[Rfam]
This 154-nucleotide RNA sequence from Marmota monax belongs to the Rfam family "FGF-1 internal ribosome entry site (IRES)". The match comes from Rfam's covariance-model search (88 bits). Its family is annotated with ribosome binding in the Gene Ontology.
RNA sequence: AACUUCCAAGGGGAUAAGGGCAUCGCCUCCUUUCUUGAAGGACACUCCCUUCUGAUGGUGAUGGGAACUCCCUUCCUCCUGCAUCGGCCUGCCUGCAGUACAGUGUGAAUGCUGCAGCAGCGACCAGGGCCCCAGAAAGACAGCGCCCCAGAGU
Numbered sequence: 001a002a003c004u005u006c007c008a009a010g011g012g013g014a015u016a017a018g019g020g021c022a023u024c025g026c027c028u029c030c031u032u033u034c035u036u037g038a039a040g041g042a043c044a045c046u047c048c049c050u051u052c053u054g055a056u057g058g059u060g061a062u063g064g065g066a067a068c069u070c071c072c073u074u075c076c077u078c079c080u081g082c083a084u085c086g087g088c089c090u091g092c093c094u095g096c097a098g099u100a101c102a103g104u105g106u107g108a109a110u111g112c113u114g115c116a117g118c119a120g121c122g123a124c125c126a127g128g129g130c131c132c133c134a135g136a137a138a139g140a141c142a143g144c145g146c147c148c149c150a151g152a153g154u
Stems, first nucleotide, its partner, number of pairs: 002154004010149004015140001017050004026041003030037001051136003058078001060075002063072003082128001084123002087121002093117008